freshwater-2 RNA: a 90-nucleotide RNA. The base pairs follow the family's consensus structure, which is taken from published work.
[Rfam]
RNA sequence: UUUUACACAUUGUAAAAAGACUUAUGCGGAUUUUAACCGCGUAAGCAAGUAGAACUUGCAUUUGGCUCCAUGUAAGGAGAAAACAAAAUG
Numbered sequence: 001u002u003u004u005a006c007a008c009a010u011u012g013u014a015a016a017a018a019g020a021c022u023u024a025u026g027c028g029g030a031u032u033u034u035a036a037c038c039g040c041g042u043a044a045g046c047a048a049g050u051a052g053a054a055c056u057u058g059c060a061u062u063u064g065g066c067u068c069c070a071u072g073u074a075a076g077g078a079g080a081a082a083a084c085a086a087a088a089u090g
Base pairs, nucleotide, nucleotide: 001017002016003015004014005013006012023043024042025041026040027039028038029037045059046058047057048056